[Rfam]
RNA sequence: GGAUGUGAGGGUAAUAUGGGUGUGACAUCUGUCACUCCAUUGAUCGCUGGUGUUAGGCCGAUCUGGCCAGUUAGGCAGGUGCCCCUUACUUCCCAUGCACACAUGCCCCCUCCACUCGUCUGAAGCCCUGCGCUCAGCUGAAGAGGAUGCAUAGGGCCCCCUAUCAGUAGCCCAACUUACCUGAUAGAUCCUUCAAGAACCAAAAUGUAGGAAUAGAACCAGAGGGUAGUCAAGCAUAUACACAUCCACAUAGGCACUGCGUGUAGCAGUGUGCCAUAGCUUU
Numbered sequence: 001g002g003a004u005g006u007g008a009g010g011g012u013a014a015u016a017u018g019g020g021u022g023u024g025a026c027a028u029c030u031g032u033c034a035c036u037c038c039a040u041u042g043a044u045c046g047c048u049g050g051u052g053u054u055a056g057g058c059c060g061a062u063c064u065g066g067c068c069a070g071u072u073a074g075g076c077a078g079g080u081g082c083c084c085c086u087u088a089c090u091u092c093c094c095a096u097g098c099a100c101a102c103a104u105g106c107c108c109c110c111u112c113c114a115c116u117c118g119u120c121u122g123a124a125g126c127c128c129u130g131c132g133c134u135c136a137g138c139u140g141a142a143g144a145g146g147a148u149g150c151a152u153a154g155g156g157c158c159c160c161c162u163a164u165c166a167g168u169a170g171c172c173c174a175a176c177u178u179a180c181c182u183g184a185u186a187g188a189u190c191c192u193u194c195a196a197g198a199a200c201c202a203a204a205a206u207g208u209a210g211g212a213a214u215a216g217a218a219c220c221a222g223a224g225g226g227u228a229g230u231c232a233a234g235c236a237u238a239u240a241c242a243c244a245u246c247c248a249c250a251u252a253g254g255c256a257c258u259g260c261g262u263g264u265a266g267c268a269g270u271g272u273g274c275c276a277u278a279g280c281u282u283u
Base pairs, nucleotide, nucleotide: 001106003104005100006099007098009096011094013091014090018086019085024083026081027080028079029078030077031076032075033074035070036069037066038065039064042063043062044061045060046058047057048056115149116147117146119144120137121136122135123134125133126132138143170235171234176229177228180225181224182223192218193217194216197214200211201210248283250281252277253275254274255273256270257269258268259267260266